[Rfam]
A member of the RNA family "7SK RNA" from Jacana jacana, 296 nucleotides long. For this family Rfam cites "Transcription: surprising role for an elusive small nuclear RNA" (Blencowe, Curr Biol, 2002). Rfam's curators write: 7SK was discovered as an abundant small nuclear RNA in the mid-70s but a possible function has only recently been suggested. The source organism's lineage runs through Eukaryota, Dipnotetrapodomorpha, Sauria, Coelurosauria and Jacana. Its Rfam clan is "7SK clan". It is annotated as a non-coding RNA gene.
RNA sequence: GGAUGUGAGGGCGAUCUGGUUGCGACAUCUGUCACCCCAUUGAUCGCCAGGGUUGAUUUGGCUGAUCUGGCUGGCUAGGCGGGUGUCCCCUUCCUCCCUUACCACUCCAUGUGUGUCCCUCCUGAAGCUGCGCGCUCAGUCGAAGAGGACAACCUUCCCUGAUAGAGAUGUACCGUUCAUUGGUCAAGGGUAUACGGUAGCUCCGCUCCCCUGCUAGAACCUCCAAAAGAUCUCUAACAUGGUCUUCAGAGCACACAGUCCAGAGAAGAAAUUCAUUGGUAGGAUGUGAGAUUUAU
Numbered sequence: 001g002g003a004u005g006u007g008a009g010g011g012c013g014a015u016c017u018g019g020u021u022g023c024g025a026c027a028u029c030u031g032u033c034a035c036c037c038c039a040u041u042g043a044u045c046g047c048c049a050g051g052g053u054u055g056a057u058u059u060g061g062c063u064g065a066u067c068u069g070g071c072u073g074g075c076u077a078g079g080c081g082g083g084u085g086u087c088c089c090c091u092u093c094c095u096c097c098c099u100u101a102c103c104a105c106u107c108c109a110u111g112u113g114u115g116u117c118c119c120u121c122c123u124g125a126a127g128c129u130g131c132g133c134g135c136u137c138a139g140u141c142g143a144a145g146a147g148g149a150c151a152a153c154c155u156u157c158c159c160u161g162a163u164a165g166a167g168a169u170g171u172a173c174c175g176u177u178c179a180u181u182g183g184u185c186a187a188g189g190g191u192a193u194a195c196g197g198u199a200g201c202u203c204c205g206c207u208c209c210c211c212u213g214c215u216a217g218a219a220c221c222u223c224c225a226a227a228a229g230a231u232c233u234c235u236a237a238c239a240u241g242g243u244c245u246u247c248a249g250a251g252c253a254c255a256c257a258g259u260c261c262a263g264a265g266a267a268g269a270a271a272u273u274c275a276u277u278g279g280u281a282g283g284a285u286g287u288g289a290g291a292u293u294u295a296u
Stems, first nucleotide, its partner, number of pairs: 001108003005102007013093002018090002024087010035074002037070003042067004046062003117170001119167003122139004127135002140162003147158003201268002206263002211258003221251003227246005288296001
Pairs were carried over by alignment from the consensus structure, which is taken from published work. The match comes from Rfam's covariance-model search (247 bits).